This 129-nucleotide RNA from Corynebacterium freneyi belongs to the Rfam family "ALIL pseudoknot". For this family Rfam cites "Apical loop-internal loop RNA pseudoknots: a new type of stimulator of -1 translational frameshifting in bacteria" (Mazauric et al., J Biol Chem, 2008). It is annotated as a cis-regulatory element. The match comes from Rfam's covariance-model search (67 bits).
RNA sequence: GGCUUUUUUCGCAGCGGAGCUCGACCGCCCACAGCGUUGAUCGUGGAGUACAUCGACCAGUACAGGCAUGAGUUCGGCGUCGAGCCGAUCUGUCGAACGCUGACCGCAGCGGGCACGCAGAUCGCGCCG
Numbered sequence: 001g002g003c004u005u006u007u008u009u010c011g012c013a014g015c016g017g018a019g020c021u022c023g024a025c026c027g028c029c030c031a032c033a034g035c036g037u038u039g040a041u042c043g044u045g046g047a048g049u050a051c052a053u054c055g056a057c058c059a060g061u062a063c064a065g066g067c068a069u070g071a072g073u074u075c076g077g078c079g080u081c082g083a084g085c086c087g088a089u090c091u092g093u094c095g096a097a098c099g100c101u102g103a104c105c106g107c108a109g110c111g112g113g114c115a116c117g118c119a120g121a122u123c124g125c126g127c128c129g
Base pairs, nucleotide, nucleotide: 014028015027016026017025075129076128077127078126079125086124087123089121090120091119092118093117
Dot-bracket structure: .............((((.......))))..............................................(((((......((.(((((.......................))))).)))))))